About this RNA:
mir-67 microRNA precursor family: a 98-nucleotide RNA from Fopius arisanus. Gene Ontology terms of the family: RISC complex and miRNA-mediated post-transcriptional gene silencing. For this family Rfam cites "Identification of conserved microRNAs in Bombyx mori (silkworm) and regulation of fibroin L chain production by microRNAs in heterologous system" (Cao et al., Insect Biochem Mol Biol, 2008).

Nucleotides: 098
Stems, first nucleotide, its partner, number of pairs: 008090002012087009024075002027072007
Number, partner (000 for none) and nucleotide at each position: 001000c002000a003000c004000u005000u006000c007000g008090u009089u010000u011000a012087c013086u014085c015084a016083c017082u018081c019080a020079a021000c022000c023000u024075g025074g026000g027072u028071g029070u030069g031068a032067u033066g034000c035000u036000u037000g038000u039000u040000c041000a042000c043000a044000a045000g046000u047000a048000c049000g050000u051000g052000g053000a054000c055000u056000c057000u058000c059000a060000g061000a062000u063000g064000g065000c066033c067032a068031u069030c070029a071028c072027a073000a074025c075024c076000u077000u078000a079020u080019u081018g082017a083016g084015u085014g086013a087012g088000c089009g090008a091000a092000u093000g094000c095000g096000g097000g098000c